The family of this 56-nucleotide sequence from Clostridium thermosuccinogenes is "Na+ riboswitch aptamer (DUF1646)".

RNA sequence: GGUUGGACAAACACGGGUUUGAUUCCAAAGGUAUUUUGUUUCCAGGGUGGGAAACU
Number, nucleotide and partner (000 for none) at each position: 001g000002g000003u028004u027005g026006g023007a000008c021009a020010a019011a018012c000013a000014c000015g000016g000017g000018u011019u010020u009021g008022a000023u006024u000025c000026c005027a004028a003029a000030g000031g000032u000033a000034u000035u000036u000037u000038g055039u054040u053041u052042c051043c050044a000045g000046g000047g000048u000049g000050g043051g042052a041053a040054a039055c038056u000
Annotation
Taxonomically the source falls in Clostridium (Bacteria, Bacillati, Clostridia, Clostridiaceae). Its family is annotated with sodium ion binding and regulation of gene expression in the Gene Ontology. The family's consensus secondary structure is taken from published work. A reference for the family is White et al. (2022), "Na(+) riboswitches regulate genes for diverse physiological processes in bacteria", Nat Chem Biol.